The family of this 203-nucleotide RNA sequence from Pleuronectes platessa is "Small nucleolar RNA SNORA53".
RNA sequence: AACACGUUCCUUAGAUCCACCUCUAGAGGGCACUGUUCUCUGAGCAGUGCUCCUCGGCAGCUUUCUGGCUGUACAGUUGGAGGUGCUUGAGUCAUUGGCGUGUGAGAACAGUCUACCUGUCCCCCAGCCCAACCGCAUCACUGGCAACCCUGUCCUCUACAGACAGGGAGCCUCCAGUGCUGCAAGUCUGGUGGACGGACAAA
Numbered sequence: 001a002a003c004a005c006g007u008u009c010c011u012u013a014g015a016u017c018c019a020c021c022u023c024u025a026g027a028g029g030g031c032a033c034u035g036u037u038c039u040c041u042g043a044g045c046a047g048u049g050c051u052c053c054u055c056g057g058c059a060g061c062u063u064u065c066u067g068g069c070u071g072u073a074c075a076g077u078u079g080g081a082g083g084u085g086c087u088u089g090a091g092u093c094a095u096u097g098g099c100g101u102g103u104g105a106g107a108a109c110a111g112u113c114u115a116c117c118u119g120u121c122c123c124c125c126a127g128c129c130c131a132a133c134c135g136c137a138u139c140a141c142u143g144g145c146a147a148c149c150c151u152g153u154c155c156u157c158u159a160c161a162g163a164c165a166g167g168g169a170g171c172c173u174c175c176a177g178u179g180c181u182g183c184a185a186g187u188c189u190g191g192u193g194g195a196c197g198g199a200c201a202a203a
Base pairs, nucleotide, nucleotide: 002103003102004101005100006099007098008097010091011090012089013088014087018085019084020083021082022081023080024079025078028055029054030052031049032048033047034046035045036044037043038042057072058071059070060069061068062067117198118197119196120195121194124191126189127188129186137181139179140178141177142176143175144174152172154167155166156165

Source information:
Rfam's curators write: The snoRNA ACA53 belongs to the H/ACA family of pseudouridylation guide snoRNAs. The organism belongs to Pleuronectes, within Eukaryota. The match comes from Rfam's covariance-model search (89 bits). The family's RNA type in Rfam is H/ACA-box small nucleolar RNA.